[Rfam]
A member of the RNA family "Ribosomal protein L19 leader" from Lentibacillus sp. JNUCC-1, 37 nucleotides long. The literature on the family includes a 1994 paper in Prog Nucleic Acid Res Mol Biol by Zengel and Lindahl, "Diverse mechanisms for regulating ribosomal protein synthesis in Escherichia coli". A search with the family's covariance model found it, with a score of 37 bits. Rfam's curators write: This family is a putative r-protein leader autoregulatory structure found in B. subtilis and other low-GC Gram-positive bacteria. It is located in the 5' untranslated regions of mRNAs encoding ribosomal protein L19 (rplS). Pairs were carried over by alignment from the consensus structure, which was predicted with CMfinder. Gene Ontology term of the family: regulation of gene expression.

RNA sequence: ACGAUGUUCCGCUGUUUCAUGCAAAUAUGAGCAUUGG
Numbered sequence: 001a002c003g004a005u006g007u008u009c010c011g012c013u014g015u016u017u018c019a020u021g022c023a024a025a026u027a028u029g030a031g032c033a034u035u036g037g
Stems, first nucleotide, its partner, number of pairs: 003035007013027005
Dot-bracket structure: ..(((((((...(((((.....))))).)))))))..